[Rfam]
This 265-nucleotide RNA from Peptostreptococcus sp. D1 belongs to the Rfam family "Bacterial large signal recognition particle RNA". The signal recognition particle (SRP) is a universally conserved ribonucleoprotein involved in the co-translational targeting of proteins to membranes. The family's RNA type in Rfam is non-coding RNA gene. Its Rfam clan is "SRP clan". Lineage of the source: Bacteria > Bacillota > Clostridia > Peptostreptococcaceae > Peptostreptococcus. Its family is annotated with SRP-dependent cotranslational protein targeting to membrane, signal sequence recognition and signal recognition particle, plasma membrane targeting in the Gene Ontology.
RNA sequence: CUGUACUAGAUGGGGAGAUAGCGGUGCCCUGUAACCCGCAAUCCGCUUUAGCGGGGUUGAAUUCCAUCCCGAGGCAAUUUGUCUGUGAUGCAGUCCUAUGCAAGUAGUGUUGAUAGAUGGGUCCCAAGCAAUGGAAGCUCAUGAAUCCCGUCAGGUUCGGAAGAAAGCAGCGGUAAGUGAUACCUUUCAUGUGACUUGGGGAUGCCUAUAAGGAGCAAACUACAUGGGCAACGGUUGGAGGCAUUUGUCGGAGGAUGGUGUGCAG
Numbered sequence: 001c002u003g004u005a006c007u008a009g010a011u012g013g014g015g016a017g018a019u020a021g022c023g024g025u026g027c028c029c030u031g032u033a034a035c036c037c038g039c040a041a042u043c044c045g046c047u048u049u050a051g052c053g054g055g056g057u058u059g060a061a062u063u064c065c066a067u068c069c070c071g072a073g074g075c076a077a078u079u080u081g082u083c084u085g086u087g088a089u090g091c092a093g094u095c096c097u098a099u100g101c102a103a104g105u106a107g108u109g110u111u112g113a114u115a116g117a118u119g120g121g122u123c124c125c126a127a128g129c130a131a132u133g134g135a136a137g138c139u140c141a142u143g144a145a146u147c148c149c150g151u152c153a154g155g156u157u158c159g160g161a162a163g164a165a166a167g168c169a170g171c172g173g174u175a176a177g178u179g180a181u182a183c184c185u186u187u188c189a190u191g192u193g194a195c196u197u198g199g200g201g202a203u204g205c206c207u208a209u210a211a212g213g214a215g216c217a218a219a220c221u222a223c224a225u226g227g228g229c230a231a232c233g234g235u236u237g238g239a240g241g242c243a244u245u246u247g248u249c250g251g252a253g254g255a256u257g258g259u260g261u262g263c264a265g
Stems, first nucleotide, its partner, number of pairs: 001265006009058003012030004017025001019023001035055005064258006073249005080243005086237004096227005104220002107216002114212001117209006123200006129191002132189005139180004148173004156165003